[Rfam]
RNA sequence: UCGGCACGGCAAGUGAUUGCUUUUAAAUUUCGGUUUAAAAGAGGAAAGUCCGAGCUGCUAUAAGACAAAGUCCCAUCUAACGGAUGGCUAGGGAAACCUAAGGGAUAGUGUAACAGAAAGCAGACUGCCGCUUCGGCGGUGAUGGUGAAACGGCGGGGUAAGAGCCCACCAGCGCCACGCGAAAGCAUGGCGGCUAUAUAAACCCGACUUGCAGCAAGAAGGGAUGGUUUUAGUCUUAUGUUAAACCCUUCGCUAGAGCCAAAUUGCGAAAUUUGGAUUAGAUAAAUAAUCACUCACGACAGAACUCGGCUUAUCGCCGUGCCUUUUUA
Numbered sequence: 001u002c003g004g005c006a007c008g009g010c011a012a013g014u015g016a017u018u019g020c021u022u023u024u025a026a027a028u029u030u031c032g033g034u035u036u037a038a039a040a041g042a043g044g045a046a047a048g049u050c051c052g053a054g055c056u057g058c059u060a061u062a063a064g065a066c067a068a069a070g071u072c073c074c075a076u077c078u079a080a081c082g083g084a085u086g087g088c089u090a091g092g093g094a095a096a097c098c099u100a101a102g103g104g105a106u107a108g109u110g111u112a113a114c115a116g117a118a119a120g121c122a123g124a125c126u127g128c129c130g131c132u133u134c135g136g137c138g139g140u141g142a143u144g145g146u147g148a149a150a151c152g153g154c155g156g157g158g159u160a161a162g163a164g165c166c167c168a169c170c171a172g173c174g175c176c177a178c179g180c181g182a183a184a185g186c187a188u189g190g191c192g193g194c195u196a197u198a199u200a201a202a203c204c205c206g207a208c209u210u211g212c213a214g215c216a217a218g219a220a221g222g223g224a225u226g227g228u229u230u231u232a233g234u235c236u237u238a239u240g241u242u243a244a245a246c247c248c249u250u251c252g253c254u255a256g257a258g259c260c261a262a263a264u265u266g267c268g269a270a271a272u273u274u275g276g277a278u279u280a281g282a283u284a285a286a287u288a289a290u291c292a293c294u295c296a297c298g299a300c301a302g303a304a305c306u307c308g309g310c311u312u313a314u315c316g317c318c319g320u321g322c323c324u325u326u327u328u329a
Stems, first nucleotide, its partner, number of pairs: 003323008011314001012294007020041009046312003050309005055214004068210005073087005088102001089100004103205002108203002110199003125144001127140005152170002155167003172194001173192005179186002218251004226247005259276007
RNA: Bacterial RNase P class A